[Rfam]
RNA sequence: CCCGAGGCGUUGCCUCGGGCUAUCUCAUUUCGCACCUUUGGUGCU
Numbered sequence: 001c002c003c004g005a006g007g008c009g010u011u012g013c014c015u016c017g018g019g020c021u022a023u024c025u026c027a028u029u030u031c032g033c034a035c036c037u038u039u040g041g042u043g044c045u
Stems, first nucleotide, its partner, number of pairs: 001019008032044005
Acido-Lenti-1 RNA: a 45-nucleotide sequence from Luteolibacter yonseiensis. The match comes from Rfam's covariance-model search (38 bits). NCBI's taxonomy places the organism under Bacteria, Pseudomonadati, Verrucomicrobiota, Verrucomicrobiales, Luteolibacter. By type it is a small RNA. The base pairs follow the family's consensus structure, which is taken from published work.